[Rfam]
RNA: Glycine riboswitch aptamer
RNA sequence: CACACCCGUGCGGGAGAGCUCCGGGGGUCAUCCCGGGGCGCCGAAGGAGCAAGAUCUCCCCACAAACUCUCAGGCCCAAGACCGCCGGGUCAGG
Numbered sequence: 001c002a003c004a005c006c007c008g009u010g011c012g013g014g015a016g017a018g019c020u021c022c023g024g025g026g027g028u029c030a031u032c033c034c035g036g037g038g039c040g041c042c043g044a045a046g047g048a049g050c051a052a053g054a055u056c057u058c059c060c061c062a063c064a065a066a067c068u069c070u071c072a073g074g075c076c077c078a079a080g081a082c083c084g085c086c087g088g089g090u091c092a093g094g
Base pairs, nucleotide, nucleotide: 006089007088010085011084012083013082019038020037021036022035040075041074042073043071044070047069048068049067053063
Dot-bracket structure: .....((..((((.....((((............)))).(((((..(((...(.........)...))))).)))......))))..)).....